[Rfam]
The family of this 392-nucleotide sequence from Rubrimonas cliftonensis is "Bacterial RNase P class A". The base pairs follow the family's consensus structure, which is taken from published work.
RNA sequence: GCGGGCGGUUGGAUGGCCGCGUCGGUCCUUCGGGGCCGUCGAGGAAAGUCCGGGCUCCACGGAGACACGGCGCCGGGUAACGCCCGGCCGGGGAGGCGCGAGGGAGACCGAAGGCCGAACCCGAGGGAAAGCGCCACAGAAAACAAACCGCCGCGCCUCGGCGCGGCAAGGGUGAAACGGUGGGGUAAGAGCCCACCGCGCCCCCGGCGACGGGGGCGGCAUGGCAAGCCCCGCCGGGAGCAAGAUCGCAUAGGGGCCGCACAUGGGGCGUCUUCGCCCUGCGGCCCGGGUUGAUCGCAAGAACCCGUCGGCGACGGCGGGUCCAGAUGAAUGGCCAUCCACGGGGCCGCGAGGCCCCCGGACAGAACCCGGCUUACAGACCGCCCGCACCG
Numbered sequence: 001g002c003g004g005g006c007g008g009u010u011g012g013a014u015g016g017c018c019g020c021g022u023c024g025g026u027c028c029u030u031c032g033g034g035g036c037c038g039u040c041g042a043g044g045a046a047a048g049u050c051c052g053g054g055c056u057c058c059a060c061g062g063a064g065a066c067a068c069g070g071c072g073c074c075g076g077g078u079a080a081c082g083c084c085c086g087g088c089c090g091g092g093g094a095g096g097c098g099c100g101a102g103g104g105a106g107a108c109c110g111a112a113g114g115c116c117g118a119a120c121c122c123g124a125g126g127g128a129a130a131g132c133g134c135c136a137c138a139g140a141a142a143a144c145a146a147a148c149c150g151c152c153g154c155g156c157c158u159c160g161g162c163g164c165g166g167c168a169a170g171g172g173u174g175a176a177a178c179g180g181u182g183g184g185g186u187a188a189g190a191g192c193c194c195a196c197c198g199c200g201c202c203c204c205c206g207g208c209g210a211c212g213g214g215g216g217c218g219g220c221a222u223g224g225c226a227a228g229c230c231c232c233g234c235c236g237g238g239a240g241c242a243a244g245a246u247c248g249c250a251u252a253g254g255g256g257c258c259g260c261a262c263a264u265g266g267g268g269c270g271u272c273u274u275c276g277c278c279c280u281g282c283g284g285c286c287c288g289g290g291u292u293g294a295u296c297g298c299a300a301g302a303a304c305c306c307g308u309c310g311g312c313g314a315c316g317g318c319g320g321g322u323c324c325a326g327a328u329g330a331a332u333g334g335c336c337a338u339c340c341a342c343g344g345g346g347c348c349g350c351g352a353g354g355c356c357c358c359c360g361g362a363c364a365g366a367a368c369c370c371g372g373c374u375u376a377c378a379g380a381c382c383g384c385c386c387g388c389a390c391c392g
Stems, first nucleotide, its partner, number of pairs: 001388010011377001012339007020041002023038006046375003050372005055240004063274002068236005073087005088125001089123004126231002131229002133225003148171002150167007179197006198220001199218008244296004254287006265280005303322008